[Rfam]
RNA: mir-9195 microRNA precursor family
Organism: Myotis lucifugus
RNA sequence: AGAGGCCCUCCGCGGCCAGGGUGGAAUGUUUGCCUCGUCGCUGCGGCAACAAAGCAAGCAUUCCGCCAGGCUGCUCAUGCUGCCCGC
Numbered sequence: 001a002g003a004g005g006c007c008c009u010c011c012g013c014g015g016c017c018a019g020g021g022u023g024g025a026a027u028g029u030u031u032g033c034c035u036c037g038u039c040g041c042u043g044c045g046g047c048a049a050c051a052a053a054g055c056a057a058g059c060a061u062u063c064c065g066c067c068a069g070g071c072u073g074c075u076c077a078u079g080c081u082g083c084c085c086g087c
Stems, first nucleotide, its partner, number of pairs: 004084003012074006020067014037050002040047002